[Rfam]
RNA: Bacterial RNase P class A
Organism: Longispora fulva
RNA sequence: CGAGUCGGCCGGGCGGUCGCGUGUGCCUUUCGGGGCACCCGAGGAACGUCCGGGCUCCACAGGGCAGGGUGGUUGUUAACGGCAACCCGGGGUGACCCGCGGGACAGUGCCACAGAGAACAGACCGCCCCGGCCUCGGUCGGGGUAAGGGUGAAACGGUGGGGUAAGAGCCCACCAGCGCCCCAGGUGACUGGGGCGGCUAGGUAAACCCCACCCGGAGCAAGGUCAAAAGGGCCCUCGGGCCUGCGUGAGCGUUUGAGGGCUGCCCGCCCGAGCUCGCGGGUAGACCGCUAGAGCCCAUCGGCGACGGUGGGCGUAGAUGGAUGGCCGCCAGGCGGGACUUCGGUCCCGGGCUACAGAACCCGGCGUACAGGCCGACUCGUCCG
Numbered sequence: 001c002g003a004g005u006c007g008g009c010c011g012g013g014c015g016g017u018c019g020c021g022u023g024u025g026c027c028u029u030u031c032g033g034g035g036c037a038c039c040c041g042a043g044g045a046a047c048g049u050c051c052g053g054g055c056u057c058c059a060c061a062g063g064g065c066a067g068g069g070u071g072g073u074u075g076u077u078a079a080c081g082g083c084a085a086c087c088c089g090g091g092g093u094g095a096c097c098c099g100c101g102g103g104a105c106a107g108u109g110c111c112a113c114a115g116a117g118a119a120c121a122g123a124c125c126g127c128c129c130c131g132g133c134c135u136c137g138g139u140c141g142g143g144g145u146a147a148g149g150g151u152g153a154a155a156c157g158g159u160g161g162g163g164u165a166a167g168a169g170c171c172c173a174c175c176a177g178c179g180c181c182c183c184a185g186g187u188g189a190c191u192g193g194g195g196c197g198g199c200u201a202g203g204u205a206a207a208c209c210c211c212a213c214c215c216g217g218a219g220c221a222a223g224g225u226c227a228a229a230a231g232g233g234c235c236c237u238c239g240g241g242c243c244u245g246c247g248u249g250a251g252c253g254u255u256u257g258a259g260g261g262c263u264g265c266c267c268g269c270c271c272g273a274g275c276u277c278g279c280g281g282g283u284a285g286a287c288c289g290c291u292a293g294a295g296c297c298c299a300u301c302g303g304c305g306a307c308g309g310u311g312g313g314c315g316u317a318g319a320u321g322g323a324u325g326g327c328c329g330c331c332a333g334g335c336g337g338g339a340c341u342u343c344g345g346u347c348c349c350g351g352g353c354u355a356c357a358g359a360a361c362c363c364g365g366c367g368u369a370c371a372g373g374c375c376g377a378c379u380c381g382u383c384c385g
Base pairs, nucleotide, nucleotide: 001381002380003379004378005377006376007375008374009373010372011370012331013330014329015328016327017326018325020041021040023038024037025036026035027034028033046368047367048366050365051364052363053362054361055219056218057217058216062267063266064265065264067215068214069213070212071211072086073085074084075083076082087101088099089098090097091096102210103209107208108207109204110203111202124149125148126145127144128143129142130141131140132139133138157175158174159173160172161171162170177199178197179196180195181194182193183192184191185190223288224287225286226285247279248278249277250276251275252274259271260270261269262268295314296313297312298311299310300309301308302307
Dot-bracket structure: ((((((((((((((((((.((.((((((....)))))).))....[[[.[[[[[((((...[[[[.((((((((((.....)))))(((((....)))).)((...(((((............((((((((((....))))))))..)).......((((((.......)))))).(((((((((....)))))))).)..)))..)))))))))))))...((((....................((((((......((((.]]]]))))..)))))).....))))......((((((((....))))))))..........))))))).............................]]]]]]]].).))))))))))....